[Rfam]
RNA sequence: CUUGGCUAUGGCGACAUGUACCCUCAGACAACAUCUGGAAUGCUAGUGGGUGCGCUGUGCGCCCUGGCGGGUGUGCUGACCAUUGCUAUGCCUGUUCCUGUAAUUGUGAACAAC
Numbered sequence: 001c002u003u004g005g006c007u008a009u010g011g012c013g014a015c016a017u018g019u020a021c022c023c024u025c026a027g028a029c030a031a032c033a034u035c036u037g038g039a040a041u042g043c044u045a046g047u048g049g050g051u052g053c054g055c056u057g058u059g060c061g062c063c064c065u066g067g068c069g070g071g072u073g074u075g076c077u078g079a080c081c082a083u084u085g086c087u088a089u090g091c092c093u094g095u096u097c098c099u100g101u102a103a104u105u106g107u108g109a110a111c112a113a114c
Base pairs, nucleotide, nucleotide: 002113004111007108008107009106010105011104014101015100016099018097020095021094037077038076040074049063050062051061
RNA: Potassium channel RNA editing signal
Organism: Danio rerio